[Rfam]
ZMP/ZTP riboswitch aptamer (pfl RNA motif): an 83-nucleotide RNA sequence from Microbacterium keratanolyticum.
Pairs were carried over by alignment from the consensus structure, which is taken from published work.
Its family is annotated with regulation of purine nucleotide biosynthetic process and one-carbon metabolic process in the Gene Ontology.
RNA sequence: UUCAGGCGUCGCGACUGGCGUCUGGGUGGGCUACCACCGGGGAGCGACCGUUACGGAUUCGACCGCGCGCCUGGGCCGAUGAG
Numbered sequence: 001u002u003c004a005g006g007c008g009u010c011g012c013g014a015c016u017g018g019c020g021u022c023u024g025g026g027u028g029g030g031c032u033a034c035c036a037c038c039g040g041g042g043a044g045c046g047a048c049c050g051u052u053a054c055g056g057a058u059u060c061g062a063c064c065g066c067g068c069g070c071c072u073g074g075g076c077c078g079a080u081g082a083g
Stems, first nucleotide, its partner, number of pairs: 004052002008048005015041002017071005026037004060078002063075002